[Rfam]
RNA: c-di-GMP-I riboswitch aptamer
Organism: Alicyclobacillus tolerans
RNA sequence: AUGUGUCAAAGGCAAACCUGUGGAAAUGCAGGGACGCAAAGCUAAAGGGGCUAAAGCGAGAGAAUCGCCAUGCUUGCCAGUUGCCACU
Numbered sequence: 001a002u003g004u005g006u007c008a009a010a011g012g013c014a015a016a017c018c019u020g021u022g023g024a025a026a027u028g029c030a031g032g033g034a035c036g037c038a039a040a041g042c043u044a045a046a047g048g049g050g051c052u053a054a055a056g057c058g059a060g061a062g063a064a065u066c067g068c069c070a071u072g073c074u075u076g077c078c079a080g081u082u083g084c085c086a087c088u
Stems, first nucleotide, its partner, number of pairs: 012037002017032006040082004047078002049074003056068004